The family of this 59-nucleotide sequence is "msiK RNA". The family has 120 seed sequences and 1,374 matches in Rfam 15.1. The family's RNA type in Rfam is cis-regulatory element.
[Rfam]
RNA sequence: AGGAUGACCUAUCUCCAACGGAUCGUCCGGCACGUACCUGCCGGGAGAGGGAGCUAACG
Dot-bracket structure: ........((.((((...........((((((......)))))))))))).........